[Rfam]
Background: The family of this 135-nucleotide RNA from Oryctolagus cuniculus is "Small nucleolar RNA U109". Lineage of the source: Eukaryota > Bilateria > Gnathostomata > Amniota > Oryctolagus. Pairs were carried over by alignment from the consensus structure, which was predicted with WAR. A search with the family's covariance model found it, with a score of 94 bits. Gene Ontology terms of the family: nucleolus and RNA processing. It is annotated as an H/ACA-box small nucleolar RNA. For this family Rfam cites "A common sequence motif determines the Cajal body-specific localization of box H/ACA scaRNAs" (Richard et al., EMBO J, 2003).

RNA sequence: CUGCAUGUGGAGAUGUCUGCUUGACCUUUGGGAGCAGGAAUGCGCCCACAACCUGCUACAUGAACAAAGGAGUUCUCAGGGCCGCCAGCCGUGCAGUAGAGGUUGAGUGGUAGUGUAGUCCGUCCUCCUACAUGA
Numbered sequence: 001c002u003g004c005a006u007g008u009g010g011a012g013a014u015g016u017c018u019g020c021u022u023g024a025c026c027u028u029u030g031g032g033a034g035c036a037g038g039a040a041u042g043c044g045c046c047c048a049c050a051a052c053c054u055g056c057u058a059c060a061u062g063a064a065c066a067a068a069g070g071a072g073u074u075c076u077c078a079g080g081g082c083c084g085c086c087a088g089c090c091g092u093g094c095a096g097u098a099g100a101g102g103u104u105g106a107g108u109g110g111u112a113g114u115g116u117a118g119u120c121c122g123u124c125c126u127c128c129u130a131c132a133u134g135a
Stems, first nucleotide, its partner, number of pairs: 003056003007052002016038007069128004081111002085107001086105005092099001